[Rfam]
RNA sequence: GUUGAUGAUGAACUCGCUUGUUGCUGAAGGGUGAUGAAGGGCAUACUGGCUGAUU
Numbered sequence: 001g002u003u004g005a006u007g008a009u010g011a012a013c014u015c016g017c018u019u020g021u022u023g024c025u026g027a028a029g030g031g032u033g034a035u036g037a038a039g040g041g042c043a044u045a046c047u048g049g050c051u052g053a054u055u
Base pairs, nucleotide, nucleotide: 001050002049003048008044009043010042014037015036016035023032024031025030